Shown here is a 174-nucleotide RNA from Arabidopsis lyrata, a member of the family "MIR4208 microRNA precursor family". Pairs were carried over by alignment from the consensus structure, which was predicted with RNAalifold. Its family is annotated with RISC complex and miRNA-mediated post-transcriptional gene silencing in the Gene Ontology. It scores 141 bits against the family's covariance model. Taxonomically the source falls in Arabidopsis lyrata (Eukaryota, Streptophytina, Brassicales, Camelineae).

Nucleotides: 174
Base pairs, nucleotide, nucleotide: 003171004170005169006168007167008166009165010164011163013160014159015158016157017156018155019154020153021152022151023150024149025148026147027146029144030143031142032141033140034139035138036137037136038135039134040133041132042131043130044129045128046127049126050125052123053122054121055120058117059116
Number, partner (000 for none) and nucleotide at each position: 001000u002000g003171u004170g005169g006168u007167g008166a009165u010164a011163u012000u013160c014159a015158a016157a017156a018155u019154a020153u021152a022151c023150a024149u025148u026147u027146u028000a029144u030143u031142u032141u033140u034139g035138g036137c037136a038135a039134u040133c041132a042131u043130u044129u045128u046127u047000c048000u049126u050125u051000c052123u053122a054121a055120a056000a057000a058117c059116a060000c061000a062000a063000u064000a065000a066000u067000a068000u069000a070000u071000a072000u073000a074000u075000a076000u077000a078000u079000a080000u081000g082000a083000u084000a085000u086000g087000a088000c089000c090000a091000a092000c093000g094000u095000u096000u097000g098000a099000g100000u101000u102000u103000u104000a105000a106000a107000a108000a109000a110000g111000a112000a113000a114000a115000a116059u117058g118000a119000a120055u121054u122053u123052a124000u125050a126049a127046g128045a129044a130043a131042a132041u133040g134039a135038u136037u137036g138035c139034c140033a141032a142031a143030a144029a145000g146027a147026a148025a149024a150023u151022g152021u153020a154019u155018a156017u157016u158015u159014u160013g161000u162000u163011a164010u165009a166008u167007u168006a169005c170004c171003a172000a173000a174000a